[Rfam]
Notes
Shown here is a 115-nucleotide sequence from Arthrobacter sp. CAU 1506, a member of the family "SAM (S-adenosyl methionine) riboswitch aptamer". The match comes from Rfam's covariance-model search (114 bits). From the family's description: SAM-IV is a mRNA element that regulates gene expression via direct sensing of S-adenosylmethionine (SAM or AdoMet). The base pairs follow the family's consensus structure, which is taken from published work. Gene Ontology terms of the family: regulation of gene expression and S-adenosylmethionine metabolic process.

RNA sequence: GGUCAUGAGUGCCAGCGUGAAACCCCGGUUUGCUGGCCGGCAACCCUCCAACCGCGGUGGGGUGCCCCGGGUGAAGACCAGGCAGCCGCCACAAGGCGGUGCGCAAGCGCGGGUC
Number, nucleotide and partner (000 for none) at each position: 001g079002g078003u077004c076005a000006u000007g000008a000009g038010u000011g037012c036013c035014a034015g033016c032017g000018u000019g000020a000021a030022a029023c000024c000025c000026c000027g000028g000029u022030u021031u000032g016033c015034u014035g013036g012037c011038c009039g066040g065041c064042a000043a000044c062045c061046c060047u000048c057049c056050a000051a000052c000053c000054g000055c000056g049057g048058u000059g000060g046061g045062g044063u000064g041065c040066c039067c000068c000069g000070g000071g000072u000073g000074a000075a000076g004077a003078c002079c001080a000081g000082g104083c103084a000085g100086c099087c098088g097089c096090c095091a000092c000093a000094a000095g090096g089097c088098g087099g086100u085101g000102c000103g083104c082105a000106a000107g000108c000109g000110c000111g000112g000113g000114u000115c000